The record is a 67-nucleotide RNA sequence from Lederbergia galactosidilytica, which matches "Bacillaceae-1 RNA" in Rfam. The family's consensus secondary structure is taken from published work.

[Rfam]
RNA sequence: UCAAGUGGAUGAACAGCUAAAUUCGCGCCCUCCUGGCGCAACGCUGUUCUGACCAACGUCCUGUUGA
Numbered sequence: 001u002c003a004a005g006u007g008g009a010u011g012a013a014c015a016g017c018u019a020a021a022u023u024c025g026c027g028c029c030c031u032c033c034u035g036g037c038g039c040a041a042c043g044c045u046g047u048u049c050u051g052a053c054c055a056a057c058g059u060c061c062u063g064u065u066g067a
Stems, first nucleotide, its partner, number of pairs: 011049007025039005054066004

Rfam classes the family as a small RNA.